[Rfam]
RNA sequence: GCAUUGCAUUAGGAGUUGGGCAGACGCCCAACGCCAACCUGCCCGCCCGGGCAAGGUGGCGCUCCCGUGGGGGAUGUGGCCGGACCGGCAAUCAAACGGGCCACA
Dot-bracket structure: .....(((((....(.(((((....))))).)(((..((((((.[[[[[))).))).)))............))))).((((...)))).......]]]]]....

The record is a 105-nucleotide RNA from Ziziphus jujuba, which matches "SAM-I/IV (S-adenosyl methionine) riboswitch aptamer" in Rfam. The source organism's lineage runs through Eukaryota, Mesangiospermae, Gunneridae, Rhamnaceae and Ziziphus. The family's consensus secondary structure is taken from published work. A search with the family's covariance model found it, with a score of 61 bits. On this family, see Weinberg et al., RNA 2008: "The aptamer core of SAM-IV riboswitches mimics the ligand-binding site of SAM-I riboswitches".